[Rfam]
U5 spliceosomal RNA: a 113-nucleotide RNA from Oikopleura dioica. U5 RNA is a component of both types of known spliceosome. The precise function of this molecule is unknown, though it is known that the 5' loop is required for splice site selection and p220 binding, and that both the 3' stem-loop and the Sm site are important for Sm protein binding and cap methylation. The literature on the family includes a 1997 paper in Nucleic Acids Res by Zwieb, "The uRNA database". Pairs were carried over by alignment from the consensus structure, which is taken from published work. By type it is a spliceosomal small nuclear RNA. The sequence is in the family's curated seed alignment.
RNA sequence: UAGCUCUGGUCUCUCUUCAAAACGUAUAAUUCUUUCGCCUUUUACUAAAGAAUUCCGUGGAGAGGGACACUCUUAUGAGUAUUUGAAUUUUUCUGUAGCUCCAAACGGAGCAG
Numbered sequence: 001u002a003g004c005u006c007u008g009g010u011c012u013c014u015c016u017u018c019a020a021a022a023c024g025u026a027u028a029a030u031u032c033u034u035u036c037g038c039c040u041u042u043u044a045c046u047a048a049a050g051a052a053u054u055c056c057g058u059g060g061a062g063a064g065g066g067a068c069a070c071u072c073u074u075a076u077g078a079g080u081a082u083u084u085g086a087a088u089u090u091u092u093c094u095g096u097a098g099c100u101c102c103a104a105a106c107g108g109a110g111c112a113g
Stems, first nucleotide, its partner, number of pairs: 003080004009068011028054008098111005